The record is a 150-nucleotide RNA from Mesobacillus campisalis, which matches "FMN riboswitch aptamer (RFN element)" in Rfam. The RFN element is a highly conserved domain that is found frequently in the 5'-untranslated regions of prokaryotic mRNAs that encode for flavin mononucleotide (FMN) biosynthesis and transport proteins. This element is a metabolite-dependent riboswitch that directly binds FMN in the absence of proteins. In Bacillus subtilis, the riboswitch most likely controls gene expression by causing premature transcription termination within the 5' untranslated region of the ribDEAHT operon and precluding access to the ribosome-binding site of ypaA mRNA.The FMN riboswitch structure, reported in present an FMN-bound six-stem junction, adopts a butterfly-like scaffold, stapled together by opposingly directed but nearly identically folded peripheral domains. It scores 110 bits against the family's covariance model.

[Rfam]
RNA sequence: AUAUUCCUUCGGGGUCGGGUGCAAUUCCCAACCGGCGGUGAUGAAGUGAGCGAGUGCUUCUUAGUCCGUGACCCGGUUAACUUACGUUAAGCGGUGGAUCUGGUGAAACUCCAGGGCCGACAGUAAAAGUCUGGAUGGGAGAAGGAAAAA
Numbered sequence: 001a002u003a004u005u006c007c008u009u010c011g012g013g014g015u016c017g018g019g020u021g022c023a024a025u026u027c028c029c030a031a032c033c034g035g036c037g038g039u040g041a042u043g044a045a046g047u048g049a050g051c052g053a054g055u056g057c058u059u060c061u062u063a064g065u066c067c068g069u070g071a072c073c074c075g076g077u078u079a080a081c082u083u084a085c086g087u088u089a090a091g092c093g094g095u096g097g098a099u100c101u102g103g104u105g106a107a108a109c110u111c112c113a114g115g116g117c118c119g120a121c122a123g124u125a126a127a128a129g130u131c132u133g134g135a136u137g138g139g140a141g142a143a144g145g146a147a148a149a150a
Stems, first nucleotide, its partner, number of pairs: 004147007017029003031130002033119002035069004064117002073094002099115005121133003
Dot-bracket structure: ...(((((((......(((.......))).[[((((((.........................[[))))...((..................))....(((((.......)))))]])).(((.....]]))).......)))))))...